[Rfam]
Nucleotides: 080
Stems, first nucleotide, its partner, number of pairs: 013048001018047003024080007031043001052069005
Number, partner (000 for none) and nucleotide at each position: 001000a002000g003000a004000g005000g006000u007000u008000g009000c010000a011000a012000g013048c014000u015000c016000g017000g018047g019046g020045u021000c022000a023000u024080a025079g026078c027077a028076g029075a030074a031043g032000c033000a034000c035000u036000c037000a038000c039000a040000g041000c042000a043031c044000a045020g046019c047018c048013g049000u050000g051000u052069c053068a054067g055066a056065u057000g058000c059000c060000a061000a062000c063000a064000a065056a066055u067054c068053u069052g070000c071000a072000a073000a074030u075029u076028c077027u078026g079025c080024u

Source information: The family of this 80-nucleotide RNA from Alligator sinensis is "Mammalian CPEB3 ribozyme". The match comes from Rfam's covariance-model search (35 bits). Rfam describes the family as follows. The mammalian CPEB3 ribozyme is a self cleaving RNA located in the second intron of the CPEB3 gene which belongs to a family of genes regulating messenger RNA polyadenylation.